[Rfam]
Nucleotides: 066
Stems, first nucleotide, its partner, number of pairs: 010025004016057006036047003
Number, partner (000 for none) and nucleotide at each position: 001000c002000a003000g004000c005000a006000u007000c008000a009000a010025g011024g012023a013022a014000a015000u016057g017056g018055u019054g020053u021052c022013u023012u024011c025010c026000u027000a028000u029000c030000c031000g032000a033000a034000c035000c036047g037046c038045u039000c040000u041000a042000a043000c044000a045038a046037g047036c048000u049000g050000a051000u052021g053020g054019c055018g056017c057016c058000u059000g060000g061000u062000c063000a064000a065000u066000u

Background
Shown here is a 66-nucleotide RNA from Dyadobacter koreensis, a member of the family "Fluoride riboswitch aptamer (crcB RNA motif)". The match comes from Rfam's covariance-model search (41 bits). For this family Rfam cites "Fluoride ion encapsulation by Mg2+ ions and phosphates in a fluoride riboswitch" (Ren et al., Nature, 2012).